[Rfam]
RNA sequence: AGAAUACGACGGUCCCUCUCCUCCUCCCUGGGACCAUCGACAACGAUCUGCUCUCUCCUCCUCCCUGAGCGGAUCGUGACUAAAGCGGCGGCCCCCUUCUCCUCCUCCCUAGGGGGCUGCCGCAA
Numbered sequence: 001a002g003a004a005u006a007c008g009a010c011g012g013u014c015c016c017u018c019u020c021c022u023c024c025u026c027c028c029u030g031g032g033a034c035c036a037u038c039g040a041c042a043a044c045g046a047u048c049u050g051c052u053c054u055c056u057c058c059u060c061c062u063c064c065c066u067g068a069g070c071g072g073a074u075c076g077u078g079a080c081u082a083a084a085g086c087g088g089c090g091g092c093c094c095c096c097u098u099c100u101c102c103u104c105c106u107c108c109c110u111a112g113g114g115g116g117c118u119g120c121c122g123c124a125a
Stems, first nucleotide, its partner, number of pairs: 007039003011035006044076010085123013

The family of this 125-nucleotide RNA from Marivivens sp. JLT3646 is "Alphaproteobacterial ar14". From the family's description: Smr14C2 was renamed NfeR1 (Nodule Formation Efficiency RNA) highly expressed in salt stress and during the symbiotic interaction on legume roots. Rfam links the family to the GO term biological process involved in symbiotic interaction.